[Rfam]
RNA: mir-9/mir-79 microRNA precursor family
RNA sequence: UCAUUUCUACUUUCGGUUAUCUAGCUUUAUGACGGCUCUGUGGCGCUCAUACAGCUAGAUAACCAAAGAGAGAAACGG
Numbered sequence: 001u002c003a004u005u006u007c008u009a010c011u012u013u014c015g016g017u018u019a020u021c022u023a024g025c026u027u028u029a030u031g032a033c034g035g036c037u038c039u040g041u042g043g044c045g046c047u048c049a050u051a052c053a054g055c056u057a058g059a060u061a062a063c064c065a066a067a068g069a070g071a072g073a074a075a076c077g078g
Stems, first nucleotide, its partner, number of pairs: 001078002004075002007072002011068003015064012028051005